[Rfam]
Bacteroidales-1 6S-Bacteroidales RNA suggested: a 182-nucleotide sequence from Prevotella sp. CAG:1185. Lineage of the source: Bacteria > Pseudomonadati > Bacteroidota > Prevotellaceae > Prevotella. The family's RNA type in Rfam is small RNA. On this family, see Ryan et al., Nat Commun 2020: "A high-resolution transcriptome map identifies small RNA regulation of metabolism in the gut microbe Bacteroides thetaiotaomicron". The base pairs follow the family's consensus structure, which is taken from published work.

RNA sequence: GACCGUAUUAGUUCGAUCGGGAUACUCAUCAAAUUAAAACUGAAAACCGAGAAGACUUCUUUUGCUAAUGGCGGGCCACAAUAUCUUUGAUAUAGCUGUAAAGCCGGUGGAUUACAAAGGCGGAGAGCUCUCAAAUCUUAUAUAGCUCGGAGUUUCAUCACAUCACUGGUACGGUCUUUUUU
Numbered sequence: 001g002a003c004c005g006u007a008u009u010a011g012u013u014c015g016a017u018c019g020g021g022a023u024a025c026u027c028a029u030c031a032a033a034u035u036a037a038a039a040c041u042g043a044a045a046a047c048c049g050a051g052a053a054g055a056c057u058u059c060u061u062u063u064g065c066u067a068a069u070g071g072c073g074g075g076c077c078a079c080a081a082u083a084u085c086u087u088u089g090a091u092a093u094a095g096c097u098g099u100a101a102a103g104c105c106g107g108u109g110g111a112u113u114a115c116a117a118a119g120g121c122g123g124a125g126a127g128c129u130c131u132c133a134a135a136u137c138u139u140a141u142a143u144a145g146c147u148c149g150g151a152g153u154u155u156c157a158u159c160a161c162a163u164c165a166c167u168g169g170u171a172c173g174g175u176c177u178u179u180u181u182u
Base pairs, nucleotide, nucleotide: 056127057126059125061124062123063122064121065120066119069116070115076110077109078108079107082092083091084090095104096103097102